[Rfam]
RNA: Ribosomal protein L10 leader
Organism: Clostridium sp. AM58-1XD
Nucleotides: 136
Base pairs, nucleotide, nucleotide: 028062029061030060031059032058033057034043035042036041096121097120098119099118100117101116102115103114104113105112
Number, partner (000 for none) and nucleotide at each position: 001000c002000u003000a004000c005000g006000u007000c008000a009000g010000u011000a012000u013000u014000g015000a016000c017000u018000g019000c020000c021000g022000a023000a024000g025000a026000c027000a028062g029061u030060a031059g032058g033057u034043g035042c036041c037000g038000c039000a040000a041036g042035g043034c044000u045000u046000a047000a048000g049000g050000u051000g052000u053000u054000a055000a056000c057033g058032c059031c060030u061029a062028c063000c064000g065000a066000g067000g068000a069000a070000c071000a072000u073000a074000c075000a076000a077000c078000u079000c080000a081000u082000a083000a084000u085000g086000a087000g088000a089000a090000u091000u092000g093000u094000a095000g096121a097120c098119c099118u100117c101116u102115c103114u104113g105112u106000c107000u108000u109000u110000u111000u112105g113104c114103a115102g116101a117100g118099a119098g120097g121096u122000u123000u124000u125000u126000u127000u128000c129000g130000c131000a132000g133000g134000u135000g136000a